[Rfam]
RNA sequence: UUUUUGCGUUAGGGAUAGGAACGGCAUCCUUUUGUGGAGCGUAGCAGAACAAAAGAUAAAGUGGAUAGCCCGACCCGCC
Numbered sequence: 001u002u003u004u005u006g007c008g009u010u011a012g013g014g015a016u017a018g019g020a021a022c023g024g025c026a027u028c029c030u031u032u033u034g035u036g037g038a039g040c041g042u043a044g045c046a047g048a049a050c051a052a053a054a055g056a057u058a059a060a061g062u063g064g065a066u067a068g069c070c071c072g073a074c075c076c077g078c079c
Base pairs, nucleotide, nucleotide: 012071013070014069016067017066021062022061026057027056028055032052033051034050035049039045

This 79-nucleotide RNA from Flavobacterium sp. FPG59 belongs to the Rfam family "Flavo-1 RNA". The family's RNA type in Rfam is small RNA. Lineage of the source: Bacteria > Pseudomonadati > Bacteroidota > Flavobacteriaceae > Flavobacterium.